[Rfam]
RNA sequence: AAUAUGGCUGCUGAAAUUAAUAUGAUAAUUUUGGCAUGGGACUUAUGUCUGCUAGAAUUACCAUAUUAAUUUCGGCAACCAUAUUAA
Numbered sequence: 001a002a003u004a005u006g007g008c009u010g011c012u013g014a015a016a017u018u019a020a021u022a023u024g025a026u027a028a029u030u031u032u033g034g035c036a037u038g039g040g041a042c043u044u045a046u047g048u049c050u051g052c053u054a055g056a057a058u059u060a061c062c063a064u065a066u067u068a069a070u071u072u073c074g075g076c077a078a079c080c081a082u083a084u085u086a087a
Stems, first nucleotide, its partner, number of pairs: 001085007009077016026060002029057008040049003
RNA: mir-7131 microRNA precursor family